[Rfam]
RNA sequence: AGUGAAUAUAUAUAUUUCCUUUAUAUAAUCUCAGAAAUAUGGUCUGAGAGUUUCUACCGGAUCACCGUAAAUGAUCCGACUAUAAAGGCAGAUGUUAGAUGU
Numbered sequence: 001a002g003u004g005a006a007u008a009u010a011u012a013u014a015u016u017u018c019c020u021u022u023a024u025a026u027a028a029u030c031u032c033a034g035a036a037a038u039a040u041g042g043u044c045u046g047a048g049a050g051u052u053u054c055u056a057c058c059g060g061a062u063c064a065c066c067g068u069a070a071a072u073g074a075u076c077c078g079a080c081u082a083u084a085a086a087g088g089c090a091g092a093u094g095u096u097a098g099a100u101g102u
Stems, first nucleotide, its partner, number of pairs: 018088008029049007058078007
RNA: Purine riboswitch aptamer